Rfam assigns this 217-nucleotide RNA sequence from Phyllobacterium sp. YR531 to the family "permuted transfer-messenger RNA". Rfam's curators write: Bacterial tmRNA, also known as 10Sa RNA or SsrA, is named for its dual tRNA and mRNA-like properties. Its role is to liberate the mRNA from a stalled ribosome. To accomplish this part of the tmRNA is used as a reading frame that ends in a translation stop signal. It scores 148 bits against the family's covariance model.
RNA sequence: GGUGAUAAACGGACGAUGAAAUAAGCCCAUUGGACCCGGGGGCGGUACCCGGCGCCUCCACCACAAUGCAGCAAACCAAGCGCUGCCUUGUGGCGGGGGCGAAAUAGGAUCGACAAGGGUGUAAAGAUCGAACUUUUGCCCGGCAUUGUACCACCGUUAUCGGGCUAAAUCUGUAGUUGCAAACGACAACUAUGCGGAAGCACGUCUCGCUGCUUAA
Numbered sequence: 001g002g003u004g005a006u007a008a009a010c011g012g013a014c015g016a017u018g019a020a021a022u023a024a025g026c027c028c029a030u031u032g033g034a035c036c037c038g039g040g041g042g043c044g045g046u047a048c049c050c051g052g053c054g055c056c057u058c059c060a061c062c063a064c065a066a067u068g069c070a071g072c073a074a075a076c077c078a079a080g081c082g083c084u085g086c087c088u089u090g091u092g093g094c095g096g097g098g099g100c101g102a103a104a105u106a107g108g109a110u111c112g113a114c115a116a117g118g119g120u121g122u123a124a125a126g127a128u129c130g131a132a133c134u135u136u137u138g139c140c141c142g143g144c145a146u147u148g149u150a151c152c153a154c155c156g157u158u159a160u161c162g163g164g165c166u167a168a169a170u171c172u173g174u175a176g177u178u179g180c181a182a183a184c185g186a187c188a189a190c191u192a193u194g195c196g197g198a199a200g201c202a203c204g205u206c207u208c209g210c211u212g213c214u215u216a217a
Stems, first nucleotide, its partner, number of pairs: 001140005014130004026119003030116003036052005053101007141156003